[Rfam]
Rfam assigns this 172-nucleotide sequence from Halalkalibacillus sediminis to the family "Lysine riboswitch aptamer". It scores 108 bits against the family's covariance model.
RNA sequence: CGAUGAGGUAGAGGUGCACGAUACAAGAGUAGUACUUAUGAGAAUGACAACGAUGAUUAAGUACGAAAGGGUAGCGGGCCGAAGUGAUUGCUUAUGUCAUGAAGUAAUCAUUGGUGUAUGUUUGAAUAAAGCAUAUACUCUCGCGGGAAACUAGCGGGGAGCUACUGAUCGA
Numbered sequence: 001c002g003a004u005g006a007g008g009u010a011g012a013g014g015u016g017c018a019c020g021a022u023a024c025a026a027g028a029g030u031a032g033u034a035c036u037u038a039u040g041a042g043a044a045u046g047a048c049a050a051c052g053a054u055g056a057u058u059a060a061g062u063a064c065g066a067a068a069g070g071g072u073a074g075c076g077g078g079c080c081g082a083a084g085u086g087a088u089u090g091c092u093u094a095u096g097u098c099a100u101g102a103a104g105u106a107a108u109c110a111u112u113g114g115u116g117u118a119u120g121u122u123u124g125a126a127u128a129a130a131g132c133a134u135a136u137a138c139u140c141u142c143g144c145g146g147g148a149a150a151c152u153a154g155c156g157g158g159g160a161g162c163u164a165c166u167g168a169u170c171g172a
Stems, first nucleotide, its partner, number of pairs: 007166005016079002019076002022073003032064007083112011113139011141157004146152002

The source organism's lineage runs through Bacteria, Bacillota, Bacilli, Caryophanales and Halalkalibacillus.
Pairs were carried over by alignment from the consensus structure, which is taken from published work.
Rfam describes the family as follows. Riboswitches are metabolite binding domains within certain messenger RNAs that serve as precision sensors for their corresponding targets.